[Rfam]
RNA sequence: CGGCUGUAGCCAUAUCAAAUGUCUCAGAGAAGUUAACUGGCCGGUUUUUUGGGAGAUCUUUUGAUCUCCAUCAACUAUUUUGCUUACCGAACUUCUCAUAUAU
Numbered sequence: 001c002g003g004c005u006g007u008a009g010c011c012a013u014a015u016c017a018a019a020u021g022u023c024u025c026a027g028a029g030a031a032g033u034u035a036a037c038u039g040g041c042c043g044g045u046u047u048u049u050u051g052g053g054a055g056a057u058c059u060u061u062u063g064a065u066c067u068c069c070a071u072c073a074a075c076u077a078u079u080u081u082g083c084u085u086a087c088c089g090a091a092c093u094u095c096u097c098a099u100a101u102a103u
Stems, first nucleotide, its partner, number of pairs: 027097008039084003043080002046077001049074003
Rfam assigns this 103-nucleotide sequence from Juglans regia to the family "Small nucleolar RNA snoR109". A search with the family's covariance model found it, with a score of 65 bits.